[Rfam]
RNA sequence: AUAUUGCCUCAUGCCCGUGAGGUAGAGCAGGUGUAAUGGGGGACAUCUGCUCAAUAAAAAAGCGGAC
Numbered sequence: 001a002u003a004u005u006g007c008c009u010c011a012u013g014c015c016c017g018u019g020a021g022g023u024a025g026a027g028c029a030g031g032u033g034u035a036a037u038g039g040g041g042g043a044c045a046u047c048u049g050c051u052c053a054a055u056a057a058a059a060a061a062g063c064g065g066a067c
Stems, first nucleotide, its partner, number of pairs: 005024008025052010
Dot-bracket structure: ....((((((((....))))))))((((((((((........))))))))))...............

This 67-nucleotide RNA from Prosthecochloris sp. CIB 2401 belongs to the Rfam family "Chlorobi-1 RNA".
By type it is a small RNA.
Taxonomically the source falls in Prosthecochloris (Bacteria, Pseudomonadati, Chlorobiales, Chlorobiaceae).